RNA: U12 minor spliceosomal RNA
RNA sequence: UUGCCUUAAACUAAUGAGUAAGGAAAACAAAGCGAGCGGUGAGAGCCGGUCGCCGCAUCCGUAUAUUGGUGCAAGAAUUUAUGGAGGGGUGAUGGGCUCUUCAUGUGUUGAUGCUGCUUACUUUGCAGAACCCACAUGUGCGGGCCUCCCA
Numbered sequence: 001u002u003g004c005c006u007u008a009a010a011c012u013a014a015u016g017a018g019u020a021a022g023g024a025a026a027a028c029a030a031a032g033c034g035a036g037c038g039g040u041g042a043g044a045g046c047c048g049g050u051c052g053c054c055g056c057a058u059c060c061g062u063a064u065a066u067u068g069g070u071g072c073a074a075g076a077a078u079u080u081a082u083g084g085a086g087g088g089g090u091g092a093u094g095g096g097c098u099c100u101u102c103a104u105g106u107g108u109u110g111a112u113g114c115u116g117c118u119u120a121c122u123u124u125g126c127a128g129a130a131c132c133c134a135c136a137u138g139u140g141c142g143g144g145c146c147u148c149c150c151a
Stems, first nucleotide, its partner, number of pairs: 004023005032053004037048003055072005094149003099144002102138002105135003114128004